[Rfam]
RNA: Plastid-rpl16 group II-D1 intron
Organism: Phtheirospermum japonicum
RNA sequence: AAGUGCCUCUACAGCCAAUAAAGACUAAGAAGGUUGACUCAGGAAUAAA
Numbered sequence: 001a002a003g004u005g006c007c008u009c010u011a012c013a014g015c016c017a018a019u020a021a022a023g024a025c026u027a028a029g030a031a032g033g034u035u036g037a038c039u040c041a042g043g044a045a046u047a048a049a
Stems, first nucleotide, its partner, number of pairs: 007043002013039002016036004